[Rfam]
Shown here is a 47-nucleotide RNA sequence from Microcaecilia unicolor, a member of the family "Histone 3' UTR stem-loop". It is annotated as a cis-regulatory element. The family's consensus secondary structure is taken from published work. Rfam's curators write: The mRNAs of metazoan histone genes lack a poly-A tail. 3' end processing occurs at a site between a highly conserved stem-loop (modelled by this family) and a purine rich region around 20 nts downstream (the histone downstream element, or HDE). The stem-loop is bound by a 31 kDa stem-loop binding protein (SLBP - also termed the histone hairpin binding protein, or HBP). Together with U7 snRNA binding of the HDE, SLBP binding nucleate s the formation of the processing complex. The histone 3' UTR stem-loop is also involved in nucleocytoplasmic transport of the mRNA, and in stability regulation and translation efficiency in the cytoplasm. On this family, see Williams and Marzluff, Nucleic Acids Res 1995: "The sequence of the stem and flanking sequences at the 3' end of histone mRNA are critical determinants for the binding of the stem-loop binding protein".

RNA sequence: ACAAAGGUCUUUCUAAAGACCACAACCUUAUUCCAAAAGAUCUAUCU
Numbered sequence: 001a002c003a004a005a006g007g008u009c010u011u012u013c014u015a016a017a018g019a020c021c022a023c024a025a026c027c028u029u030a031u032u033c034c035a036a037a038a039g040a041u042c043u044a045u046c047u
Stems, first nucleotide, its partner, number of pairs: 006021006